This 172-nucleotide sequence from Streptomyces sp. QHH-9511 belongs to the Rfam family "c-di-AMP riboswitch aptamer (ydaO/yuaA leader)". The organism belongs to Streptomyces, within Bacteria. It scores 60 bits against the family's covariance model.
[Rfam]
RNA sequence: GUCGCGUCAGCGCCGAAGGCAGGAGCGGGGGACCCAAGGUAAGUGCCGCCCCCGGCCGUCGAGACAGACGGCCGACGGACCGGCUUGGGGUGAAGCCGCGCGCCAGUCGCGCGGCCGGGCAGCUCACGCCCGAACCCGACAGCUCACCUCGUAGGCGUCGGUGAGGAGAAGU
Number, nucleotide and partner (000 for none) at each position: 001g000002u000003c000004g000005c000006g000007u000008c000009a000010g000011c157012g156013c155014c154015g000016a000017a000018g000019g000020c000021a000022g000023g000024a000025g152026c151027g150028g149029g148030g147031g000032a000033c000034c000035c087036a086037a085038g084039g000040u000041a000042a000043g000044u000045g000046c000047c000048g000049c000050c000051c000052c000053c000054g000055g000056c000057c000058g000059u000060c000061g000062a000063g000064a000065c000066a000067g000068a000069c000070g000071g000072c000073c000074g000075a000076c000077g000078g000079a000080c000081c000082g000083g000084c038085u037086u036087g035088g137089g136090g135091u000092g000093a000094a000095g000096c114097c113098g112099c111100g000101c000102g000103c000104c000105a000106g000107u000108c000109g000110c000111g099112c098113g097114g096115c000116c000117g131118g130119g129120c128121a000122g000123c000124u000125c000126a000127c000128g120129c119130c118131c117132g000133a000134a000135c090136c089137c088138g000139a000140c000141a000142g000143c000144u000145c000146a000147c030148c029149u028150c027151g026152u025153a000154g014155g013156c012157g011158u000159c000160g000161g000162u000163g000164a000165g000166g000167a000168g000169a000170a000171g000172u000